[Rfam]
RNA sequence: CCAAAGGCUCUUUUAAGAGCCACCCACCUUCCUCUAAAGAGCCUUU
Numbered sequence: 001c002c003a004a005a006g007g008c009u010c011u012u013u014u015a016a017g018a019g020c021c022a023c024c025c026a027c028c029u030u031c032c033u034c035u036a037a038a039g040a041g042c043c044u045u046u
Stems, first nucleotide, its partner, number of pairs: 006021006
Rfam assigns this 46-nucleotide sequence from Menidia menidia to the family "Histone 3' UTR stem-loop". It scores 38 bits against the family's covariance model. Pairs were carried over by alignment from the consensus structure, which is taken from published work. It is annotated as a cis-regulatory element.